[Rfam]
RNA sequence: GUGGGAGGAAGCUCAUUGUAGAGGUCACCUACAGAGUGUGAAGUCACUCUAAACCAUCACCUCGGGGAAGGUCUGAGACAGGAGCCCGUUGUCUCCCUUGCAGCGCGUCACCACAACCUGGUGAGUGGGUGCACAGAAACCAUGGGCCUCGCUGAGUGGAAGUUCACAGGAGAAGCUGCUUGGUGUCCUUGUGUGCACAACCGGUGGAUGUGAACUCAGUGGCUUGGAAACACUCACGGCUGGCAGAUGAGUUCAAUGGAUGAGGUGGAGCACAGCUCCAGAACCCAAUUCAGACAACUCUCCUCCCAC
Dot-bracket structure: ((((..(((..((((((...((((.........(((((......)))))..........)))).........[[[[[.....((((......(.(.(.....).).)((((((.....))))))(((((((..............(((........................................................................))).......))))))))))).................)))))).((((((...))))))........]]]]].......)))..))))
A member of the RNA family "Nuclear RNase P" from Muraenolepis orangiensis, 309 nucleotides long. Rfam links the family to the GO terms ribonuclease P activity, ribonuclease P complex and tRNA processing. About the family: Ribonuclease P (RNase P) is a ubiquitous endoribonuclease, found in archaea, bacteria and eukarya as well as chloroplasts and mitochondria. A search with the family's covariance model found it, with a score of 190 bits. NCBI's taxonomy places the organism under Eukaryota, Teleostei, Osteoglossocephalai, Euteleosteomorpha, Muraenolepis.